[Rfam]
RNA: U2 spliceosomal RNA
Organism: Papaver somniferum
RNA sequence: AUACCUUUCUCGGCCUUUUGGCUGAGAUCAAGUGUAGUAUCUGUUCUUAUCAGUUUUAUAUCUGAUAUGUGAGCCAUCGGCUCACACGAUACUAAAUUUAUUUUUUCCAUGGCGGAGUUCCCACCACAGCAGCUUGCUGCUGGGGUUCUCAAGCGUCGCCCUUGCGUUGCACUACUGCAAUAUGAAAGCCAGUCUUU
Numbered sequence: 001a002u003a004c005c006u007u008u009c010u011c012g013g014c015c016u017u018u019u020g021g022c023u024g025a026g027a028u029c030a031a032g033u034g035u036a037g038u039a040u041c042u043g044u045u046c047u048u049a050u051c052a053g054u055u056u057u058a059u060a061u062c063u064g065a066u067a068u069g070u071g072a073g074c075c076a077u078c079g080g081c082u083c084a085c086a087c088g089a090u091a092c093u094a095a096a097u098u099u100a101u102u103u104u105u106u107c108c109a110u111g112g113c114g115g116a117g118u119u120c121c122c123a124c125c126a127c128a129g130c131a132g133c134u135u136g137c138u139g140c141u142g143g144g145g146u147u148c149u150c151a152a153g154c155g156u157c158g159c160c161c162u163u164g165c166g167u168u169g170c171a172c173u174a175c176u177g178c179a180a181u182a183u184g185a186a187a188g189c190c191a192g193u194c195u196u197u
Stems, first nucleotide, its partner, number of pairs: 008027003012023004048067006069085007115150003120145003129140004153190001156187001162180004